[Rfam]
RNA sequence: ACGGUUUCCGGUUCACGCCUGCCGCAGGGGUAUGGCGACCCGGACC
Number, nucleotide and partner (000 for none) at each position: 001a000002c000003g046004g045005u000006u044007u000008c043009c042010g041011g040012u000013u000014c000015a000016c037017g036018c035019c034020u032021g031022c030023c029024g000025c000026a000027g000028g000029g023030g022031u021032a020033u000034g019035g018036c017037g016038a000039c000040c011041c010042g009043g008044a006045c004046c003